A member of the RNA family "Ruegeria cis2 sRNA" from Paracoccus sp. R12_2, 153 nucleotides long. For this family Rfam cites "Experimental Identification of Small Non-Coding RNAs in the Model Marine Bacterium Ruegeria pomeroyi DSS-3" (Rivers et al., Front Microbiol, 2016). Taxonomically the source falls in Paracoccus (Bacteria, Pseudomonadota, Rhodobacterales, Paracoccaceae). The base pairs follow the family's consensus structure, which was predicted with RNAfold.
RNA sequence: GUCGGUUUUCUGUGGCGUGUAGUUCACGAAGAUAUCGCCGCGGGCCUGGUCGAUGAUGUGGAACAGCGGAUUCCAGAUGAACCACGGCAGCAUGAAGUUCGGCAGAACAUUUGCGACGAACAUCUUGCCCGACGCGAACAUGUUGAUGCGCUG
Numbered sequence: 001g002u003c004g005g006u007u008u009u010c011u012g013u014g015g016c017g018u019g020u021a022g023u024u025c026a027c028g029a030a031g032a033u034a035u036c037g038c039c040g041c042g043g044g045c046c047u048g049g050u051c052g053a054u055g056a057u058g059u060g061g062a063a064c065a066g067c068g069g070a071u072u073c074c075a076g077a078u079g080a081a082c083c084a085c086g087g088c089a090g091c092a093u094g095a096a097g098u099u100c101g102g103c104a105g106a107a108c109a110u111u112u113g114c115g116a117c118g119a120a121c122a123u124c125u126u127g128c129c130c131g132a133c134g135c136g137a138a139c140a141u142g143u144u145g146a147u148g149c150g151c152u153g
Base pairs, nucleotide, nucleotide: 004033006032007031008030009029014024015023037057039055040054041052042051043050064153065152066151067150068149071081072080073079086147088145089144090143091142092141093140094139098134100131101130102129103127104126105125107123110119111118